[Rfam]
Notes: The family of this 178-nucleotide RNA from Triticum aestivum is "Small nucleolar RNA Z112". Taxonomically the source falls in Triticum (Eukaryota, Viridiplantae, Poaceae, Pooideae). By type it is a C/D-box small nucleolar RNA. Rfam 15.1 lists 427 matches to the family in 103 species. Clan: SNORD49 clan. The family's consensus secondary structure was predicted with PFOLD.

RNA sequence: GUUCGCGUAAAGAUUCUCUUUUCACCAUGUGUCAUAUGACAUUGUACAAUAGUUGGUUCUGUUGGUGCAAGUGUCCAUCGUUGUAUGAUAACCUAUGUGGUUUUGUCUGGGAUGGAAUUACCCAUUUUCACUGGAUGCCUUGUUCAGUAGCCUCUGGGUUCUUUUUCUAAAUUUGCAC
Dot-bracket structure: ....(...........................................................(((.(((((((((((.....((((.((((.....))))))))....))))))......))))).)))..............................................)